[Rfam]
Rfam assigns this 180-nucleotide RNA sequence from Oryza nivara to the family "MIR807 microRNA precursor family".
RNA sequence: AACCAUAUACACUUGGCAUUUAAUUACAUAUAUUUUGGAUGAUAUAGUUGUUUCACAUAAGACAAGGACAUGGCAUCUUAUUACCAGCCAUCACACAAAAUUAACAGGAUGCCACGUCCCCAUCCUAGAUGGAACAACCACGUCAUCUCACGGAUGAAUCCAUUCAUCGAUAGUGUGGUU
Number, nucleotide and partner (000 for none) at each position: 001a180002a179003c178004c177005a176006u175007a174008u000009a000010c000011a000012c000013u000014u172015g171016g000017c169018a000019u000020u166021u000022a164023a163024u162025u000026a000027c000028a159029u158030a000031u156032a155033u154034u153035u000036u150037g149038g148039a146040u145041g144042a143043u142044a000045u140046a000047g138048u137049u136050g135051u134052u133053u000054c000055a130056c000057a000058u127059a126060a000061g124062a123063c000064a000065a000066g000067g118068a117069c116070a000071u000072g000073g112074c111075a110076u109077c108078u107079u106080a000081u104082u103083a102084c000085c000086a000087g000088c000089c000090a101091u100092c000093a000094c000095a000096c000097a000098a000099a000100a091101u090102u083103a082104a081105c000106a079107g078108g077109a076110u075111g074112c073113c000114a000115c000116g069117u068118c067119c000120c000121c000122a000123u062124c061125c000126u059127a058128g000129a000130u055131g000132g000133a052134a051135c050136a049137a048138c047139c000140a045141c000142g043143u042144c041145a040146u039147c000148u038149c037150a036151c000152g000153g034154a033155u032156g031157a000158a029159u028160c000161c000162a024163u023164u022165c000166a020167u000168c000169g017170a000171u015172a014173g000174u007175g006176u005177g004178g003179u002180u001
Its family is annotated with RISC complex and miRNA-mediated post-transcriptional gene silencing in the Gene Ontology. The match comes from Rfam's covariance-model search (118 bits). Lineage of the source: Eukaryota > Tracheophyta > Spermatophyta > commelinids > Oryza. The base pairs follow the family's consensus structure, which was predicted with WAR.